small nucleolar RNA snoR134: a 155-nucleotide RNA from Capsicum baccatum. The family's RNA type in Rfam is H/ACA-box small nucleolar RNA. A search with the family's covariance model found it, with a score of 96 bits. The family has 5 seed sequences and 792 matches in Rfam 15.1. Rfam links the family to the GO terms nucleolus and RNA processing.
RNA sequence: CUGCACGUAGCCUCCCGGGCUCAUCUGAAUAUUUUCACUUGAAGCUAGAAGCCCCAAAGCUCGUGCUAUACAUCUCGCCAUCAAGUGUUGCAGUUAUAGCCCCCCUUUGUACCUUUUAUCCAUGGCUUAUCUGUGUCAAAUCAAUGGCUAAAUCA
Numbered sequence: 001c002u003g004c005a006c007g008u009a010g011c012c013u014c015c016c017g018g019g020c021u022c023a024u025c026u027g028a029a030u031a032u033u034u035u036c037a038c039u040u041g042a043a044g045c046u047a048g049a050a051g052c053c054c055c056a057a058a059g060c061u062c063g064u065g066c067u068a069u070a071c072a073u074c075u076c077g078c079c080a081u082c083a084a085g086u087g088u089u090g091c092a093g094u095u096a097u098a099g100c101c102c103c104c105c106u107u108u109g110u111a112c113c114u115u116u117u118a119u120c121c122a123u124g125g126c127u128u129a130u131c132u133g134u135g136u137c138a139a140a141u142c143a144a145u146g147g148c149u150a151a152a153u154c155a
Base pairs, nucleotide, nucleotide: 003066004065005064006063007062010060011059017054018053019052020051021050022048025044026043077148078147079146080145081144086138087137089135090134091133092132093131099126100125101124